T-box leader: a 233-nucleotide sequence from Neobacillus massiliamazoniensis. The family's consensus secondary structure is taken from published work. Rfam links the family to the GO term tRNA binding.
RNA sequence: UGUUCGGCAUUGAAAGGAACACGAGUAGUGGAUGAUCUCCCUGUUCAAGAGAGCUGAUGGUGGUGUAAAUCAGUACAAAGAUCAACAUGAAUUACAAUCCUGGAGCUUCUUUUUCGUAGCAAAGAGUCGUCUUUGUGAAGGGAAAGACGGUCAUAUUGAUCGUUAACAAAAUCGAGAGGUGAACAAGACUGUUCACAACUAGGGUGGUACCGCGAAAUCAAUUCGUCCCUACU
Numbered sequence: 001u002g003u004u005c006g007g008c009a010u011u012g013a014a015a016g017g018a019a020c021a022c023g024a025g026u027a028g029u030g031g032a033u034g035a036u037c038u039c040c041c042u043g044u045u046c047a048a049g050a051g052a053g054c055u056g057a058u059g060g061u062g063g064u065g066u067a068a069a070u071c072a073g074u075a076c077a078a079a080g081a082u083c084a085a086c087a088u089g090a091a092u093u094a095c096a097a098u099c100c101u102g103g104a105g106c107u108u109c110u111u112u113u114u115c116g117u118a119g120c121a122a123a124g125a126g127u128c129g130u131c132u133u134u135g136u137g138a139a140g141g142g143a144a145a146g147a148c149g150g151u152c153a154u155a156u157u158g159a160u161c162g163u164u165a166a167c168a169a170a171a172u173c174g175a176g177a178g179g180u181g182a183a184c185a186a187g188a189c190u191g192u193u194c195a196c197a198a199c200u201a202g203g204g205u206g207g208u209a210c211c212g213c214g215a216a217a218u219c220a221a222u223u224c225g226u227c228c229c230u231a232c233u
Stems, first nucleotide, its partner, number of pairs: 007106002015101004028088003033084002042077003053074006109146007148162003179196007201230004212226005
Description:
Rfam classes the family as a cis-regulatory leader.